RNA sequence: GCCGAGCUCAGUAACGAGGGCUUGUGACCUGAGUGGGGGCAUUAAUGUGGUGGAACAUGGGGCUCAAAUUCUUUGGGCCGGGUCUGGUGUAGCUAUCAUCUGACUCGUCCGUUCCAAAUCGAGAGUUGGUACAUGCAGUUUGGGCGAAGGCCCGGGCCACAUGGAUCCUAGAGUGGAGGGGCCCGCGUCAGGCUGGCUUCACAGAGCAGCGAAAACCUUCCGCUCUCGGCAGUGGAAGGAUAACAGGCCGGUGUCACCCAGGUCCACCAUGGUCAAACGGGCUGACUCCAACUGAACCAUCACUUUU
Numbered sequence: 001g002c003c004g005a006g007c008u009c010a011g012u013a014a015c016g017a018g019g020g021c022u023u024g025u026g027a028c029c030u031g032a033g034u035g036g037g038g039g040c041a042u043u044a045a046u047g048u049g050g051u052g053g054a055a056c057a058u059g060g061g062g063c064u065c066a067a068a069u070u071c072u073u074u075g076g077g078c079c080g081g082g083u084c085u086g087g088u089g090u091a092g093c094u095a096u097c098a099u100c101u102g103a104c105u106c107g108u109c110c111g112u113u114c115c116a117a118a119u120c121g122a123g124a125g126u127u128g129g130u131a132c133a134u135g136c137a138g139u140u141u142g143g144g145c146g147a148a149g150g151c152c153c154g155g156g157c158c159a160c161a162u163g164g165a166u167c168c169u170a171g172a173g174u175g176g177a178g179g180g181g182c183c184c185g186c187g188u189c190a191g192g193c194u195g196g197c198u199u200c201a202c203a204g205a206g207c208a209g210c211g212a213a214a215a216c217c218u219u220c221c222g223c224u225c226u227c228g229g230c231a232g233u234g235g236a237a238g239g240a241u242a243a244c245a246g247g248c249c250g251g252u253g254u255c256a257c258c259c260a261g262g263u264c265c266a267c268c269a270u271g272g273u274c275a276a277a278c279g280g281g282c283u284g285a286c287u288c289c290a291a292c293u294g295a296a297c298c299a300u301c302a303c304u305u306u307u
Base pairs, nucleotide, nucleotide: 001040002039003038004023005022006021007020008019009018028037029036030035044306045305047303048302049301050300051299052298053297056294057293058291060289062287064285065284066283069280070279072277073276074275076274077273078272079271080265081264082263083262084261085260086259087258089257090256092254094253095252100251101250102249104247105246107244108243109239110238112237113236114235115234116233119229120228121227122226123225124224125223126222128167129166130165132163133162134161135160138157139156140155141154142153143152144151145150168173175220176219177218178217179216186211187210188209193204194203195202
This 307-nucleotide RNA sequence from Corymbia citriodora belongs to the Rfam family "Plant signal recognition particle RNA". On this family, see Wild et al., Curr Opin Struct Biol 2002: "Towards the structure of the mammalian signal recognition particle". Lineage of the source: Eukaryota > Viridiplantae > Streptophytina > Mesangiospermae > Corymbia citriodora. The family's consensus secondary structure is taken from published work. By type it is a non-coding RNA gene.